[Rfam]
Shown here is an 85-nucleotide RNA from Bacillus sp. OK048, a member of the family "c-di-GMP-I riboswitch aptamer".
RNA sequence: UCUCAAAAAGGGCAAACUCACUGAAAAGUGAAGACGCAAAGCUAUAGGGGCUUCUGUCCUAGGGACCAGCCAGCCAGCUACCAUC
Numbered sequence: 001u002c003u004c005a006a007a008a009a010g011g012g013c014a015a016a017c018u019c020a021c022u023g024a025a026a027a028g029u030g031a032a033g034a035c036g037c038a039a040a041g042c043u044a045u046a047g048g049g050g051c052u053u054c055u056g057u058c059c060u061a062g063g064g065a066c067c068a069g070c071c072a073g074c075c076a077g078c079u080a081c082c083a084u085c
Stems, first nucleotide, its partner, number of pairs: 012037002018031005040079004047075002049071003056066004